[Rfam]
RNA: MIR2655 microRNA precursor family
Organism: Medicago truncatula
RNA sequence: UUUUUGGUUUCGUUUUGGUCCCUUAACUUAUUUUUUGGUUUCGUUUUGGUCCCUUAACUUAUUUUUUGGUUUCAUUUUGGUCCCUUAACUCUAAUACAUUCAUCCUAACAUAAAGGACCAAAGUGGUUGACGGAGGAAGAGUUAAGGGACCAAAACGAAACCAAAAAAUAAGUUAAGGGACCAAAAUGAAACUUUUAGUAGUUAAGGGACCAAAACGAAACCAAAAAGUAAGUUAAGGGACCAAAACGAAACCAAAAAGUAAGUUAAGGGACCAAAACGAAACUUUUAAUAGUUAAGGGA
Numbered sequence: 001u002u003u004u005u006g007g008u009u010u011c012g013u014u015u016u017g018g019u020c021c022c023u024u025a026a027c028u029u030a031u032u033u034u035u036u037g038g039u040u041u042c043g044u045u046u047u048g049g050u051c052c053c054u055u056a057a058c059u060u061a062u063u064u065u066u067u068g069g070u071u072u073c074a075u076u077u078u079g080g081u082c083c084c085u086u087a088a089c090u091c092u093a094a095u096a097c098a099u100u101c102a103u104c105c106u107a108a109c110a111u112a113a114a115g116g117a118c119c120a121a122a123g124u125g126g127u128u129g130a131c132g133g134a135g136g137a138a139g140a141g142u143u144a145a146g147g148g149a150c151c152a153a154a155a156c157g158a159a160a161c162c163a164a165a166a167a168a169u170a171a172g173u174u175a176a177g178g179g180a181c182c183a184a185a186a187u188g189a190a191a192c193u194u195u196u197a198g199u200a201g202u203u204a205a206g207g208g209a210c211c212a213a214a215a216c217g218a219a220a221c222c223a224a225a226a227a228g229u230a231a232g233u234u235a236a237g238g239g240a241c242c243a244a245a246a247c248g249a250a251a252c253c254a255a256a257a258a259g260u261a262a263g264u265u266a267a268g269g270g271a272c273c274a275a276a277a278c279g280a281a282a283c284u285u286u287u288a289a290u291a292g293u294u295a296a297g298g299g300a
Stems, first nucleotide, its partner, number of pairs: 013277003017273003021269013035255031